[Rfam]
RNA sequence: ACGUACGGAUUGACAAUUCGUAUGGUUCAUAAGGAUCAGUAAUCCGUAUGGCCAUACAGAUUGUCAAUCCGUACGUGUGUCA
Numbered sequence: 001a002c003g004u005a006c007g008g009a010u011u012g013a014c015a016a017u018u019c020g021u022a023u024g025g026u027u028c029a030u031a032a033g034g035a036u037c038a039g040u041a042a043u044c045c046g047u048a049u050g051g052c053c054a055u056a057c058a059g060a061u062u063g064u065c066a067a068u069c070c071g072u073a074c075g076u077g078u079g080u081c082a
Base pairs, nucleotide, nucleotide: 001076002075003074004073005072006071007070008069009068010067011066012065013064014063015062016061017060018059020057021056022055023054024053025052027051028050029049030048031047033045034044035043036042
This 82-nucleotide RNA from Glycine max belongs to the Rfam family "MIR4380 microRNA precursor family". The family's consensus secondary structure was predicted with RNAalifold. The source organism's lineage runs through Eukaryota, Euphyllophyta, Pentapetalae, Phaseoleae and Glycine subgen. Soja.